[Rfam]
The family of this 84-nucleotide RNA sequence from Pokkaliibacter plantistimulans is "sRNA-Xcc1". The source organism's lineage runs through Bacteria, Pseudomonadati, Gammaproteobacteria, Balneatrichaceae and Pokkaliibacter. The family's RNA type in Rfam is small RNA.

RNA sequence: GCCGGGAGGGCGAGGAAUACAACACCCGCAAGGGAAAUAACUCCGCGGUCCUUUGAGCCGUUUCGAACCUCCCGGCACCCACAC
Numbered sequence: 001g002c003c004g005g006g007a008g009g010g011c012g013a014g015g016a017a018u019a020c021a022a023c024a025c026c027c028g029c030a031a032g033g034g035a036a037a038u039a040a041c042u043c044c045g046c047g048g049u050c051c052u053u054u055g056a057g058c059c060g061u062u063u064c065g066a067a068c069c070u071c072c073c074g075g076c077a078c079c080c081a082c083a084c
Stems, first nucleotide, its partner, number of pairs: 001076009012043003016038001025034003045061005
Dot-bracket structure: (((((((((..(((.(........(((....)))...)..))).(((((.......)))))......)))))))))........
Rfam 15.1 lists 421 matches to the family in 299 species.